[Rfam]
RNA: T-box leader
Organism: Lysinibacillus telephonicus
RNA sequence: UAUUUGGCGUUGAUGGAGACAGUAAUUUUUGAAAGUGAUCAAUAGCGAGUCGAGGAUGGUGAAAGCUCGACUAAGCUUCAAAAAUGAACAUCACUCCUGAGCUAAAUCACUGAAAAAAUACAUGGUAUUUGAUUAAGUGAUUUCGUACACACGGCGUUACAGUGUCUAAGAGGCGGAUUUUGUAUGCAAUUUCUCCGCAAAUUAGGGUGGUACCACGAGUUAUAGUUUCUCGUCCCUUUA
Numbered sequence: 001u002a003u004u005u006g007g008c009g010u011u012g013a014u015g016g017a018g019a020c021a022g023u024a025a026u027u028u029u030u031g032a033a034a035g036u037g038a039u040c041a042a043u044a045g046c047g048a049g050u051c052g053a054g055g056a057u058g059g060u061g062a063a064a065g066c067u068c069g070a071c072u073a074a075g076c077u078u079c080a081a082a083a084a085u086g087a088a089c090a091u092c093a094c095u096c097c098u099g100a101g102c103u104a105a106a107u108c109a110c111u112g113a114a115a116a117a118a119u120a121c122a123u124g125g126u127a128u129u130u131g132a133u134u135a136a137g138u139g140a141u142u143u144c145g146u147a148c149a150c151a152c153g154g155c156g157u158u159a160c161a162g163u164g165u166c167u168a169a170g171a172g173g174c175g176g177a178u179u180u181u182g183u184a185u186g187c188a189a190u191u192u193c194u195c196c197g198c199a200a201a202u203u204a205g206g207g208u209g210g211u212a213c214c215a216c217g218a219g220u221u222a223u224a225g226u227u228u229c230u231c232g233u234c235c236c237u238u239u240a
Stems, first nucleotide, its partner, number of pairs: 007102002015097004025085006039073001049071006105142007144156003173198005204237004215233005